The record is a 108-nucleotide RNA from Oryza meyeriana, which matches "Small nucleolar RNA Z118/Z121/Z120" in Rfam. A search with the family's covariance model found it, with a score of 107 bits. Its family is annotated with nucleolus and RNA processing in the Gene Ontology.
[Rfam]
RNA sequence: UGUUUGCUGUGAUGAUUCGUACAAUGACGGUAUCUGAGUAAAGAACCACUUGAAAGAAUGAUCCUCAAGUGAUUACAUCCAAAACUGAUCAGAGGUUCUAAGCAAACA
Numbered sequence: 001u002g003u004u005u006g007c008u009g010u011g012a013u014g015a016u017u018c019g020u021a022c023a024a025u026g027a028c029g030g031u032a033u034c035u036g037a038g039u040a041a042a043g044a045a046c047c048a049c050u051u052g053a054a055a056g057a058a059u060g061a062u063c064c065u066c067a068a069g070u071g072a073u074u075a076c077a078u079c080c081a082a083a084a085c086u087g088a089u090c091a092g093a094g095g096u097u098c099u100a101a102g103c104a105a106a107c108a
Stems, first nucleotide, its partner, number of pairs: 001108007039067001041065001043063001